[Rfam]
The record is a 76-nucleotide RNA, which matches "dfrA-dnaX RNA" in Rfam. Pairs were carried over by alignment from the consensus structure, which is taken from published work. Rfam classes the family as a small RNA. It is one of the family's seed sequences.

RNA sequence: AUCCCUUGUGAUAAAGGUACAAUAAUUUCAUCAUAGUUACCUCAAAAAAACAAUCAAAAAGAAACUAUGAUAUAAU
Numbered sequence: 001a002u003c004c005c006u007u008g009u010g011a012u013a014a015a016g017g018u019a020c021a022a023u024a025a026u027u028u029c030a031u032c033a034u035a036g037u038u039a040c041c042u043c044a045a046a047a048a049a050a051c052a053a054u055c056a057a058a059a060a061g062a063a064a065c066u067a068u069g070a071u072a073u074a075a076u
Stems, first nucleotide, its partner, number of pairs: 030071008